[Rfam]
RNA sequence: ACACAGGAAAGGAGGUGGUCCAACGGUGAAGACAGCGAGGACUUGUGAGGUGGCUGUCCGCUAGGACCGCCCACGGCUCACGAGCCGACCCGACGCGCGGAGGUCCCUUCGGGAGACCCGGCGCGGGUGAGCGGUCGGCGAAUACCAGGCAGCUACCCGACCCCGGGGCCCCGAACUGUGUCCGGUUCGGCCUGUCGGACCACCGACAGGAAGUGGCCCCGGGGUCGCUGCUU
Numbered sequence: 001a002c003a004c005a006g007g008a009a010a011g012g013a014g015g016u017g018g019u020c021c022a023a024c025g026g027u028g029a030a031g032a033c034a035g036c037g038a039g040g041a042c043u044u045g046u047g048a049g050g051u052g053g054c055u056g057u058c059c060g061c062u063a064g065g066a067c068c069g070c071c072c073a074c075g076g077c078u079c080a081c082g083a084g085c086c087g088a089c090c091c092g093a094c095g096c097g098c099g100g101a102g103g104u105c106c107c108u109u110c111g112g113g114a115g116a117c118c119c120g121g122c123g124c125g126g127g128u129g130a131g132c133g134g135u136c137g138g139c140g141a142a143u144a145c146c147a148g149g150c151a152g153c154u155a156c157c158c159g160a161c162c163c164c165g166g167g168g169c170c171c172c173g174a175a176c177u178g179u180g181u182c183c184g185g186u187u188c189g190g191c192c193u194g195u196c197g198g199a200c201c202a203c204c205g206a207c208a209g210g211a212a213g214u215g216g217c218c219c220c221g222g223g224g225u226c227g228c229u230g231c232u233u
Base pairs, nucleotide, nucleotide: 014058015057016056017055018054019053059140060139061138062137064136065135067134068133069132070131072129073128074127158227159226160225161224162223163222164221165220166219167218168217169216170215171190172189173188174187175186176185